Source information:
A member of the RNA family "Bacterial RNase P class A" from Paenibacillus polymyxa, 399 nucleotides long. Rfam classes the family as a ribozyme. Taxonomically the source falls in Paenibacillus polymyxa (Bacteria, Bacillota, Paenibacillaceae, Paenibacillus). A search with the family's covariance model found it, with a score of 260 bits. Pairs were carried over by alignment from the consensus structure, which is taken from published work.
RNA sequence: AAAGUUUGACAGACAAUCGCUGGUGGCAUAAGCCACGAGAGGAAAGUCCGGGCUCCAUAGGGCAGGAUGCUGGAUAACGUCCAGUCAGCGCGAGUUGAAGGAUAGUGCCACAGAAAUGGACCGCCGAUGGCCGCUUGCGGCACAGGCAAGGAUGGAACCGAGGUGUAAGAGACCCCGAGGAACGCUGGUGACUUCGUUCCUGGUAAACCCCAUCUGGAGCAAGACCUAAAGGGACACAGCUUCUUCGCGAAGCAGCCUUAGCCCGAGGCGUGUCUAGGUUGGUCGCUGGAGCUGGAUAGCAAUGUUCGGCCUAGAUAGAUGAUUGUCGCUUUUAGUGGGAGGGUAGUUCCCGUCUGUACCACGAAUAGCACAGAACCCGGCUUACGGAAAACUUUCCCC
Numbered sequence: 001a002a003a004g005u006u007u008g009a010c011a012g013a014c015a016a017u018c019g020c021u022g023g024u025g026g027c028a029u030a031a032g033c034c035a036c037g038a039g040a041g042g043a044a045a046g047u048c049c050g051g052g053c054u055c056c057a058u059a060g061g062g063c064a065g066g067a068u069g070c071u072g073g074a075u076a077a078c079g080u081c082c083a084g085u086c087a088g089c090g091c092g093a094g095u096u097g098a099a100g101g102a103u104a105g106u107g108c109c110a111c112a113g114a115a116a117u118g119g120a121c122c123g124c125c126g127a128u129g130g131c132c133g134c135u136u137g138c139g140g141c142a143c144a145g146g147c148a149a150g151g152a153u154g155g156a157a158c159c160g161a162g163g164u165g166u167a168a169g170a171g172a173c174c175c176c177g178a179g180g181a182a183c184g185c186u187g188g189u190g191a192c193u194u195c196g197u198u199c200c201u202g203g204u205a206a207a208c209c210c211c212a213u214c215u216g217g218a219g220c221a222a223g224a225c226c227u228a229a230a231g232g233g234a235c236a237c238a239g240c241u242u243c244u245u246c247g248c249g250a251a252g253c254a255g256c257c258u259u260a261g262c263c264c265g266a267g268g269c270g271u272g273u274c275u276a277g278g279u280u281g282g283u284c285g286c287u288g289g290a291g292c293u294g295g296a297u298a299g300c301a302a303u304g305u306u307c308g309g310c311c312u313a314g315a316u317a318g319a320u321g322a323u324u325g326u327c328g329c330u331u332u333u334a335g336u337g338g339g340a341g342g343g344u345a346g347u348u349c350c351c352g353u354c355u356g357u358a359c360c361a362c363g364a365a366u367a368g369c370a371c372a373g374a375a376c377c378c379g380g381c382u383u384a385c386g387g388a389a390a391a392c393u394u395u396c397c398c399c
Base pairs, nucleotide, nucleotide: 001395002394003393004392005391006390007389010386012327013326014325015324016323017322018321020039021038023036024035025034026033027032044383045382046381048380049379050378051377052376053219054218055217056216060264061263062262063261065215066214067213068212069211070084071083072082073081074080085099086097087096088095089094100210101209105208106207107204108203109202121151122150123147124146125145128144129143130141131140132139133138159177160176162174163173164172179200180199181198182197183196184195187192223284224283225282226281232275233274234273235272236271237270255269256268257267258266259265291310292309293308294307295306296305297304298303